RNA sequence: AGCGGCUCCUCACGUGGUGCCAUCCAGGCCAACUCCCCCAGGGCAGAGAUGCAGCAAGGGCAACCGGGCUCUGGCAGGUGCGUGAGGGGUCUUUCCU
Numbered sequence: 001a002g003c004g005g006c007u008c009c010u011c012a013c014g015u016g017g018u019g020c021c022a023u024c025c026a027g028g029c030c031a032a033c034u035c036c037c038c039c040a041g042g043g044c045a046g047a048g049a050u051g052c053a054g055c056a057a058g059g060g061c062a063a064c065c066g067g068g069c070u071c072u073g074g075c076a077g078g079u080g081c082g083u084g085a086g087g088g089g090u091c092u093u094u095c096c097u
Stems, first nucleotide, its partner, number of pairs: 004091011015078001018076005024068002027065002035060003043052003
The family of this 97-nucleotide sequence from Frigoribacterium sp. PhB160 is "Bacterial small signal recognition particle RNA". The signal recognition particle (SRP) is a universally conserved ribonucleoprotein involved in the co-translational targeting of proteins to membranes. Gene Ontology terms of the family: signal recognition particle, plasma membrane targeting and SRP-dependent cotranslational protein targeting to membrane, signal sequence recognition. The family's consensus secondary structure is taken from published work. It is annotated as a non-coding RNA gene. The match comes from Rfam's covariance-model search (55 bits).